[Rfam]
A member of the RNA family "small nucleolar RNA snoR117" from Hibiscus syriacus, 84 nucleotides long.
RNA sequence: UGCCUAUGAUGUUCGUAAAUUUGUCCGUACCAUCUGAGAUUAAUUUCUCUGAUGUAUUCAUUCAAUUUCUGUUUUCUGAGGCAU
Numbered sequence: 001u002g003c004c005u006a007u008g009a010u011g012u013u014c015g016u017a018a019a020u021u022u023g024u025c026c027g028u029a030c031c032a033u034c035u036g037a038g039a040u041u042a043a044u045u046u047c048u049c050u051g052a053u054g055u056a057u058u059c060a061u062u063c064a065a066u067u068u069c070u071g072u073u074u075u076c077u078g079a080g081g082c083a084u
Base pairs, nucleotide, nucleotide: 001083002082003081004080